[Rfam]
RNA: Molybdenum/Tungsten riboswitch aptamer (Moco RNA motif)
Organism: Desulfosporosinus cupriresistens
RNA sequence: AAUAUUGAAAUCUCCGAGCCAGAUGACCUAAAGAGCAAAUCCAUGGUCGCUGGAUAGGACCUAUAGUCCUCAGGGUAUUACCGGAAACGGGUAUGCCUUCACAUUGAAAAGGAGUAGCACGUUAGACUGG
Numbered sequence: 001a002a003u004a005u006u007g008a009a010a011u012c013u014c015c016g017a018g019c020c021a022g023a024u025g026a027c028c029u030a031a032a033g034a035g036c037a038a039a040u041c042c043a044u045g046g047u048c049g050c051u052g053g054a055u056a057g058g059a060c061c062u063a064u065a066g067u068c069c070u071c072a073g074g075g076u077a078u079u080a081c082c083g084g085a086a087a088c089g090g091g092u093a094u095g096c097c098u099u100c101a102c103a104u105u106g107a108a109a110a111g112g113a114g115u116a117g118c119a120c121g122u123u124a125g126a127c128u129g130g
Stems, first nucleotide, its partner, number of pairs: 005121001012114004019053004024049005033041002056070005073098006081090003099107002